[Rfam]
RNA sequence: UGGGGGAGUGAAGAGUAGAUAAAAUAUUGGUACCUGAUGAAUCUGAGGCCAGGUUUCAAUACUUUAUCUGCUCUUCAUUUCCCCAU
Numbered sequence: 001u002g003g004g005g006g007a008g009u010g011a012a013g014a015g016u017a018g019a020u021a022a023a024a025u026a027u028u029g030g031u032a033c034c035u036g037a038u039g040a041a042u043c044u045g046a047g048g049c050c051a052g053g054u055u056u057c058a059a060u061a062c063u064u065u066a067u068c069u070g071c072u073c074u075u076c077a078u079u080u081c082c083c084c085a086u
Base pairs, nucleotide, nucleotide: 001085002084003083004082005081006080007079008078009077010076011075012074013073014072015071016070017069018068019067020066021065022064023063025061026060027059028058029057030056032054033053034052035051036050
RNA: mir-577 microRNA precursor family
Organism: Pongo pygmaeus